[Rfam]
RNA sequence: CUGCCAGCUCUCAUGAUGACCCUUGUGCCUCUGAGCUGCCAUGAUUCUGGCUUCAAAGUAAACGCUCUGAAGAGAUAGGCAGUGGUC
Numbered sequence: 001c002u003g004c005c006a007g008c009u010c011u012c013a014u015g016a017u018g019a020c021c022c023u024u025g026u027g028c029c030u031c032u033g034a035g036c037u038g039c040c041a042u043g044a045u046u047c048u049g050g051c052u053u054c055a056a057a058g059u060a061a062a063c064g065c066u067c068u069g070a071a072g073a074g075a076u077a078g079g080c081a082g083u084g085g086u087c
Stems, first nucleotide, its partner, number of pairs: 003086003007080002010078001
RNA: Small nucleolar RNA SNORD105